[Rfam]
RNA sequence: AGAUGCUGGAAAUCAAGUGUAGGUGGAGCCUGUGGGUGUGAUUCGAGGCGACCCAUACUUGGUUUCCAGCGUCC
Numbered sequence: 001a002g003a004u005g006c007u008g009g010a011a012a013u014c015a016a017g018u019g020u021a022g023g024u025g026g027a028g029c030c031u032g033u034g035g036g037u038g039u040g041a042u043u044c045g046a047g048g049c050g051a052c053c054c055a056u057a058c059u060u061g062g063u064u065u066c067c068a069g070c071g072u073c074c
Stems, first nucleotide, its partner, number of pairs: 002073006009066006016059002022053003028049004
mir-551 microRNA precursor family: a 74-nucleotide RNA sequence from Charadrius vociferus.
Taxonomically the source falls in Charadrius (Eukaryota, Dipnotetrapodomorpha, Tetrapoda, Archosauria).